[Rfam]
RNA sequence: GCAUAAGCAAGGGUGCAGUUCAAGCAUCCGGACCAUGCGGUCUAGUCUUGGGAGGACGUGAUUUCCGGCGCGACUUAGUCGCAGCCCCGGCUCUUAACCGGAGUGAAAUCCAGACGCGCGACUAAAAAUGCAAGGCGAAAGCCUUGCAUUUUUUU
Number, nucleotide and partner (000 for none) at each position: 001g000002c000003a155004u000005a153006a152007g000008c000009a000010a000011g029012g028013g027014u026015g025016c024017a000018g000019u000020u000021c000022a000023a000024g016025c015026a014027u013028c012029c011030g000031g000032a000033c000034c000035a000036u118037g117038c116039g115040g000041u000042c000043u000044a000045g057046u056047c055048u054049u000050g000051g000052g000053a000054g048055g047056a046057c045058g000059u000060g110061a109062u108063u107064u106065c000066c000067g086068g085069c084070g082071c081072g080073a000074c000075u000076u000077a000078g000079u000080c072081g071082c070083a000084g069085c068086c067087c101088c100089g099090g000091c000092u000093c000094u000095u000096a000097a000098c000099c089100g088101g087102a000103g000104u000105g000106a064107a063108a062109u061110c060111c000112a000113g000114a000115c039116g038117c037118g036119c000120g000121a000122c000123u000124a000125a000126a000127a000128a000129u148130g147131c146132a145133a144134g143135g142136c141137g000138a000139a000140a000141g136142c135143c134144u133145u132146g131147c130148a129149u000150u000151u000152u006153u005154u000155u003
Annotation:
Alphaproteobacterial sRNA ar9: a 155-nucleotide RNA from Aurantimonas sp. Leaf443. The pairing is the family consensus, mapped onto this sequence. Rfam classes the family as a small RNA. It scores 89 bits against the family's covariance model.